[Rfam]
RNA: 5' ureB small RNA
Organism: Parahoeflea phototrophica
RNA sequence: CUUCCUCGAUCUGCUGCGGGCAGAUGUAAUGGAUAUGGCUGUCAAAACCGCCGGCGGUGAGGAUCUUGCCUUCGCCGGCAAUCGCCUCGGUGCCGGGUCCGACGAUGAUGUUGACCCCUGGCUGGGUGUCGGGAUUGCCGGCCUUGCCGAUGGCGGCGAUGCGCCCAUCUUUCAGGCCGAUGUCGGCCUUAUAGAUCCCGGUGUGAUCGACCACCAGCGCAUUGGUGAUGACGGUGUCGACAGCGCCAUCAGCGCGAGUGACCUGGGACUGACCCAUGCCGUCGCGAAUG
Numbered sequence: 001c002u003u004c005c006u007c008g009a010u011c012u013g014c015u016g017c018g019g020g021c022a023g024a025u026g027u028a029a030u031g032g033a034u035a036u037g038g039c040u041g042u043c044a045a046a047a048c049c050g051c052c053g054g055c056g057g058u059g060a061g062g063a064u065c066u067u068g069c070c071u072u073c074g075c076c077g078g079c080a081a082u083c084g085c086c087u088c089g090g091u092g093c094c095g096g097g098u099c100c101g102a103c104g105a106u107g108a109u110g111u112u113g114a115c116c117c118c119u120g121g122c123u124g125g126g127u128g129u130c131g132g133g134a135u136u137g138c139c140g141g142c143c144u145u146g147c148c149g150a151u152g153g154c155g156g157c158g159a160u161g162c163g164c165c166c167a168u169c170u171u172u173c174a175g176g177c178c179g180a181u182g183u184c185g186g187c188c189u190u191a192u193a194g195a196u197c198c199c200g201g202u203g204u205g206a207u208c209g210a211c212c213a214c215c216a217g218c219g220c221a222u223u224g225g226u227g228a229u230g231a232c233g234g235u236g237u238c239g240a241c242a243g244c245g246c247c248a249u250c251a252g253c254g255c256g257a258g259u260g261a262c263c264u265g266g267g268a269c270u271g272a273c274c275c276a277u278g279c280c281g282u283c284g285c286g287a288a289u290g
Stems, first nucleotide, its partner, number of pairs: 001290001003288001005286001007284003012158006018076002022072002030053003034050001037048001040045001057069003077148002081144001085140001090138002092135001094133001096130003099125003103121001105119001107117001166271002170268007177260001186220002189217002201208001223257001225255001230250002234246003